A member of the RNA family "mir-399 microRNA precursor family" from Protea cynaroides, 118 nucleotides long. The base pairs follow the family's consensus structure, which was predicted with PFOLD. A reference for the family is Jones-Rhoades and Bartel (2004), "Computational Identification of Plant MicroRNAs and Their Targets, Including a Stress-Induced miRNA", Mol Cell. Its family is annotated with miRNA-mediated post-transcriptional gene silencing and RISC complex in the Gene Ontology. mir-399 was identified in both Arabidopsis thaliana and Oryza sativa computationally and was later experimentally verified. mir-399 is thought to target mRNAs coding for a phosphatase transporter. A search with the family's covariance model found it, with a score of 62 bits.

[Rfam]
RNA sequence: AGGAGCAUUGCCGGGCAAAUCUUCUUUGGCAGUUGACACACUGAUGAAAGCAAAAGUAGCACUGGCACAGUAUGUCAAGUGGCCUGCUGCCAAAGGAGAUUCACCCUGUAAUGCAGUU
Numbered sequence: 001a002g003g004a005g006c007a008u009u010g011c012c013g014g015g016c017a018a019a020u021c022u023u024c025u026u027u028g029g030c031a032g033u034u035g036a037c038a039c040a041c042u043g044a045u046g047a048a049a050g051c052a053a054a055a056g057u058a059g060c061a062c063u064g065g066c067a068c069a070g071u072a073u074g075u076c077a078a079g080u081g082g083c084c085u086g087c088u089g090c091c092a093a094a095g096g097a098g099a100u101u102c103a104c105c106c107u108g109u110a111a112u113g114c115a116g117u118u
Base pairs, nucleotide, nucleotide: 005114006113007112008111009110011108013106014105015104018101019100021098022097023096024095027092028091029090030089031088032087033086035084